[Rfam]
RNA sequence: AGUUAAUGAUGAUUUAAAAUAUAAGAGUAGUGGACAGAAGUCAUUUCUGAGUAAAUCUACCACUGAGACU
Numbered sequence: 001a002g003u004u005a006a007u008g009a010u011g012a013u014u015u016a017a018a019a020u021a022u023a024a025g026a027g028u029a030g031u032g033g034a035c036a037g038a039a040g041u042c043a044u045u046u047c048u049g050a051g052u053a054a055a056u057c058u059a060c061c062a063c064u065g066a067g068a069c070u
Stems, first nucleotide, its partner, number of pairs: 001070004